[Rfam]
Nucleotides: 154
Stems, first nucleotide, its partner, number of pairs: 011138004018034007035133006045055002056118003064091004094112004
Number, partner (000 for none) and nucleotide at each position: 001000c002000g003000c004000g005000g006000g007000g008000u009000a010000c011138c012137g013136c014135u015000u016000a017000a018034u019033c020032g021031g022030a023029g024028c025000c026000u027000g028024g029023c030022u031021c032020c033019g034018a035133g036132c037131c038130g039129g040128g041000g042000a043000a044000c045055c046054a047000c048000g049000u050000u051000c052000u053000c054046u055045g056118g057117g058116g059000u060000g061000a062000a063000u064091c065090u066089c067088c068000u069000a070000g071000g072000g073000c074000c075000g076000c077000u078000u079000g080000c081000g082000g083000u084000c085000u086000g087000c088067g089066g090065a091064g092000u093000a094112g095111g096110g097109c098000u099000g100000c101000u102000c103000u104000u105000c106000c107000c108000g109097g110096c111095c112094c113000g114000a115000a116058c117057c118056c119000g120000u121000c122000a123000g124000c125000u126000a127000a128040c129039u130038c131037g132036g133035u134000c135014a136013g137012c138011g139000g140000a141000u142000a143000a144000c145000a146000g147000g148000a149000a150000g151000a152000a153000g154000g